[Rfam]
RNA: Eukaryotic large subunit ribosomal RNA, nucleotides 441 to 772
RNA sequence: CGAAUGGAGCUUCCGUAAUAUCGAAGGAUCUCGAGCCAGCGCUUUGGUUGGAUCUGGUGUAAUGACUUCGAUGAUGCGUCCGUGAGUUUUUUCCCUUCUCGUGCGUGCGUUGAACACAACGAAAGAAUUCACUGGCUUCUUCCUCCGUGUGAGGCAGAAGCUUUGAGCUGGAGUCUUUCCUUUUUGUUGUUGUUGGAAUCGACACAGAAGGGCUCUUCGUGAGAGUUUCGAUUUUUGUUUCUCCACCUCUCCCUUUUUUUUCCAAAGGUUGGUGGAGGUCCAAAGAUUGGCAAUGGACGUAGGGGCUUCCUUCGACCCGUCUUGAAACACGG
Numbered sequence: 001c002g003a004a005u006g007g008a009g010c011u012u013c014c015g016u017a018a019u020a021u022c023g024a025a026g027g028a029u030c031u032c033g034a035g036c037c038a039g040c041g042c043u044u045u046g047g048u049u050g051g052a053u054c055u056g057g058u059g060u061a062a063u064g065a066c067u068u069c070g071a072u073g074a075u076g077c078g079u080c081c082g083u084g085a086g087u088u089u090u091u092u093c094c095c096u097u098c099u100c101g102u103g104c105g106u107g108c109g110u111u112g113a114a115c116a117c118a119a120c121g122a123a124a125g126a127a128u129u130c131a132c133u134g135g136c137u138u139c140u141u142c143c144u145c146c147g148u149g150u151g152a153g154g155c156a157g158a159a160g161c162u163u164u165g166a167g168c169u170g171g172a173g174u175c176u177u178u179c180c181u182u183u184u185u186g187u188u189g190u191u192g193u194u195g196g197a198a199u200c201g202a203c204a205c206a207g208a209a210g211g212g213c214u215c216u217u218c219g220u221g222a223g224a225g226u227u228u229c230g231a232u233u234u235u236u237g238u239u240u241c242u243c244c245a246c247c248u249c250u251c252c253c254u255u256u257u258u259u260u261u262c263c264a265a266a267g268g269u270u271g272g273u274g275g276a277g278g279u280c281c282a283a284a285g286a287u288u289g290g291c292a293a294u295g296g297a298c299g300u301a302g303g304g305g306c307u308u309c310c311u312u313c314g315a316c317c318c319g320u321c322u323u324g325a326a327a328c329a330c331g332g
Stems, first nucleotide, its partner, number of pairs: 001314004006309007020072007077299007317332004